[Rfam]
RNA sequence: AUAAACUAUAGAGGAGCUUUUAACAAGAGUAAAUAGUGGAGCAGACAUGCUAUGAAGCUAUUGAAAGGGUAUAAGAGCCGAAGUGCUUUUAAAGGUAUUUAAAAGUAUUGGUAAGAAAACAUAAAAGUUUCUUAUUCUUUGGACUUAGUCCAUUGGUGCUAUAGUAUUA
Numbered sequence: 001a002u003a004a005a006c007u008a009u010a011g012a013g014g015a016g017c018u019u020u021u022a023a024c025a026a027g028a029g030u031a032a033a034u035a036g037u038g039g040a041g042c043a044g045a046c047a048u049g050c051u052a053u054g055a056a057g058c059u060a061u062u063g064a065a066a067g068g069g070u071a072u073a074a075g076a077g078c079c080g081a082a083g084u085g086c087u088u089u090u091a092a093a094g095g096u097a098u099u100u101a102a103a104a105g106u107a108u109u110g111g112u113a114a115g116a117a118a119a120c121a122u123a124a125a126a127g128u129u130u131c132u133u134a135u136u137c138u139u140u141g142g143a144c145u146u147a148g149u150c151c152a153u154u155g156g157u158g159c160u161a162u163a164g165u166a167u168u169a
Stems, first nucleotide, its partner, number of pairs: 006164006016078006023070002032062006082109012110136007118129003
Source information: Lysine riboswitch aptamer: a 169-nucleotide RNA from Mycoplasma crocodyli. The base pairs follow the family's consensus structure, which is taken from published work. The organism belongs to Mycoplasma crocodyli, within Bacteria. Rfam links the family to the GO term lysine biosynthetic process.